Rfam assigns this 69-nucleotide RNA to the family "mir-21 microRNA precursor family".
The sequence is in the family's curated seed alignment.
A reference for the family is Coutinho et al. (2007), "Discovery and profiling of bovine microRNAs from immune-related and embryonic tissues", Physiol Genomics.
Gene Ontology terms of the family: miRNA-mediated post-transcriptional gene silencing and RISC complex.
RNA sequence: UGUCGGAUAGCUUAUCAGACUGAUGUUGACUGUUGGAUCUCAUGGCAACAACAGUCGGUAGGCUGUCUG
Numbered sequence: 001u002g003u004c005g006g007a008u009a010g011c012u013u014a015u016c017a018g019a020c021u022g023a024u025g026u027u028g029a030c031u032g033u034u035g036g037a038u039c040u041c042a043u044g045g046c047a048a049c050a051a052c053a054g055u056c057g058g059u060a061g062g063c064u065g066u067c068u069g
Stems, first nucleotide, its partner, number of pairs: 008065008018056005024050005030044001